The record is a 67-nucleotide RNA sequence from Kurthia massiliensis, which matches "RAGATH-18 RNA" in Rfam.
Rfam's curators write: Actinobacteria, Firmicutes, Fusobacteria, Thermotogae (1 example).

RNA sequence: CCUGUGGAGAAUGACACGAAACGUUAGUAGGGAGUACGUGCCGAGGACGCAUUCUGAGAAGCAGGAA
Numbered sequence: 001c002c003u004g005u006g007g008a009g010a011a012u013g014a015c016a017c018g019a020a021a022c023g024u025u026a027g028u029a030g031g032g033a034g035u036a037c038g039u040g041c042c043g044a045g046g047a048c049g050c051a052u053u054c055u056g057a058g059a060a061g062c063a064g065g066a067a
Base pairs, nucleotide, nucleotide: 001065002064003063004062005061009054010053011052012051013050022049023048024047030042031041